Shown here is a 72-nucleotide RNA sequence from Leucopsar rothschildi, a member of the family "tRNA". Gene Ontology term of the family: triplet codon-amino acid adaptor activity. By type it is a transfer RNA. It scores 46 bits against the family's covariance model.

RNA sequence: GUUCUUGUAGUCAAAUUGUCAUGACGGCAGCUUUUCAGGCUGUAGAUUCCGGAUCGAGGCCGGGCGAGAAUU
Dot-bracket structure: (((((((..((((........)))).(((((.......)))))....(((((.......)))))))))))).